Rfam assigns this 147-nucleotide RNA from Trema orientale to the family "small nucleolar RNA snoR135".
Lineage of the source: Eukaryota > Viridiplantae > Pentapetalae > Rosales > Trema.
Rfam classes the family as an H/ACA-box small nucleolar RNA.
Its family is annotated with nucleolus and RNA processing in the Gene Ontology.
The literature on the family includes a 2009 paper in Nucleic Acids Res by Chen and Wu, "Mining small RNA sequencing data: a new approach to identify small nucleolar RNAs in Arabidopsis".

RNA sequence: AGAGCAGGGAUUGUGUGUAUCGGCGUUGUGCUAGAAUCAAUGCACUCUGUAUCCGAAAGAGUUCCCUGCUAAAUCGAAUUUGGGGAAGGUGGGCAGUUGUGUUUCAUCCUCUUUUGUUGAAAUUCAACAAUCAUCUUCCCCAUAUCA
Number, nucleotide and partner (000 for none) at each position: 001a000002g000003a000004g069005c068006a067007g066008g065009g064010a063011u000012u000013g000014u000015g045016u044017g043018u042019a041020u040021c000022g000023g000024c000025g000026u000027u000028g000029u000030g000031c000032u000033a000034g000035a000036a000037u000038c000039a000040a020041u019042g018043c017044a016045c015046u000047c000048u000049g000050u000051a000052u000053c000054c000055g000056a000057a000058a000059g000060a000061g000062u000063u010064c009065c008066c007067u006068g005069c004070u000071a000072a000073a000074u000075c000076g000077a000078a000079u000080u000081u000082g141083g140084g139085g138086a137087a136088g135089g134090u133091g132092g131093g000094c000095a000096g128097u127098u126099g125100u000101g000102u000103u000104u000105c000106a000107u000108c000109c000110u000111c000112u000113u000114u000115u000116g000117u000118u000119g000120a000121a000122a000123u000124u000125c099126a098127a097128c096129a000130a000131u092132c091133a090134u089135c088136u087137u086138c085139c084140c083141c082142a000143u000144a000145u000146c000147a000